[Rfam]
RNA sequence: UCGCCCAAGGAGCGUUGCAGCGGCAGCCUGAUCCCACCCCACGAUGGUGGCCGGCUGCCGUCAGGCUUGGGCGCCCUGCCUUGGCCCCAUCGCAACGACGCUCACCUGUU
Number, nucleotide and partner (000 for none) at each position: 001u000002c073003g072004c071005c070006c069007a068008a067009g000010g000011a000012g000013c000014g000015u000016u000017g000018c000019a000020g000021c060022g059023g058024c057025a056026g055027c054028c053029u000030g000031a000032u000033c000034c000035c000036a000037c000038c000039c000040c000041a000042c000043g000044a000045u000046g000047g000048u000049g000050g000051c000052c000053g028054g027055c026056u025057g024058c023059c022060g021061u000062c000063a000064g000065g000066c000067u008068u007069g006070g005071g004072c003073g002074c000075c000076c000077u000078g000079c000080c000081u000082u000083g000084g000085c000086c000087c000088c000089a000090u000091c000092g000093c000094a000095a000096c000097g000098a000099c000100g000101c000102u000103c000104a000105c000106c000107u000108g000109u000110u000
Shown here is a 110-nucleotide RNA sequence from Acidovorax temperans, a member of the family "SAH (S-adenosyl-L-homocysteine) riboswitch aptamer".
Rfam 15.1 lists 1,354 matches to the family in 1,132 species.
It scores 53 bits against the family's covariance model.